This 91-nucleotide RNA from Camellia sinensis belongs to the Rfam family "MIR477 microRNA precursor family". The match comes from Rfam's covariance-model search (66 bits). The family's consensus secondary structure was predicted with WAR. A reference for the family is Lu et al. (2005), "Novel and mechanical stress-responsive MicroRNAs in Populus trichocarpa that are absent from Arabidopsis", Plant Cell.
Nucleotides: 091
Base pairs, nucleotide, nucleotide: 003090004089005088006087009084010083011082012081013080014079015078016077017076018075019074021072022071023070024069025068026067027066028065029064030063031062032061
Number, partner (000 for none) and nucleotide at each position: 001000g002000a003090a004089g005088u006087u007000u008000c009084u010083a011082a012081u013080u014079g015078u016077c017076c018075u019074c020000a021072a022071a023070g024069g025068c026067u027066u028065c029064c030063a031062a032061u033000a034000u035000u036000c037000c038000a039000a040000g041000c042000a043000u044000u045000g046000g047000u048000c049000u050000u051000a052000a053000c054000a055000u056000g057000g058000a059000a060000c061032g062031u063030u064029g065028g066027a067026a068025g069024u070023c071022u072021u073000u074019g075018a076017g077016g078015g079014u080013a081012a082011u083010u084009g085000a086000a087006g088005g089004c090003u091000u